[Rfam]
RNA sequence: AAUCGGCCUACCAUACCAGGGACGUGAUUCCUAACAUGGAGCCGAGGGAAACGAACCUCAGCAAACUACCAAUAUGGGAAAGCUGAAAAAUCAAGUGUUGGGUGGAGUUUGGUAGGCCGUUCUUACGGCUCGAAGAAGUCAGACCCA
Dot-bracket structure: ..(((((...((((...(((((.....)))))...)))).))))).((.......))(((((......((.....))....)))))............(((((.((.(((....(((((......)))))....))).))..)))))
RNA: RT-3 RNA